[Rfam]
RNA: small Cajal body-specific RNA 17
RNA sequence: CGCCUGGGUCCCCGAGGCAGCCCCUAGUGAGCCCGAGGUAUUUUCCUUAUAUGAUCAGGCCUCUCCUAGCCGGCGCUGCUGGUCUGGAGCCUGAGAGGAUUAUGAAAACGUGGCAGGUGAUGGGGGUCAGGGGACCUGGAG
Numbered sequence: 001c002g003c004c005u006g007g008g009u010c011c012c013c014g015a016g017g018c019a020g021c022c023c024c025u026a027g028u029g030a031g032c033c034c035g036a037g038g039u040a041u042u043u044u045c046c047u048u049a050u051a052u053g054a055u056c057a058g059g060c061c062u063c064u065c066c067u068a069g070c071c072g073g074c075g076c077u078g079c080u081g082g083u084c085u086g087g088a089g090c091c092u093g094a095g096a097g098g099a100u101u102a103u104g105a106a107a108a109c110g111u112g113g114c115a116g117g118u119g120a121u122g123g124g125g126g127u128c129a130g131g132g133g134a135c136c137u138g139g140a141g
Base pairs, nucleotide, nucleotide: 001141003139005138006137007136008135009134010133011132012131013130020127021126022125023124024123055094056093057092058091059090060089061087062086067082068080069079071078072077